[Rfam]
Annotation
Shown here is a 72-nucleotide RNA from Pantoea sp. Eser, a member of the family "MicA sRNA". Rfam links the family to the GO term mRNA binding. The base pairs follow the family's consensus structure, which was predicted with WAR. Lineage of the source: Bacteria > Pseudomonadati > Gammaproteobacteria > Enterobacterales > Pantoea.

RNA sequence: GAAAGACGCGCAGUUGUUAUCAUCAUCCCUGACAACAGAGGUGUCAAUUUGGCCACAUUGAUGUGGCCUUUU
Numbered sequence: 001g002a003a004a005g006a007c008g009c010g011c012a013g014u015u016g017u018u019a020u021c022a023u024c025a026u027c028c029c030u031g032a033c034a035a036c037a038g039a040g041g042u043g044u045c046a047a048u049u050u051g052g053c054c055a056c057a058u059u060g061a062u063g064u065g066g067c068c069u070u071u072u
Stems, first nucleotide, its partner, number of pairs: 024043004029038003051068007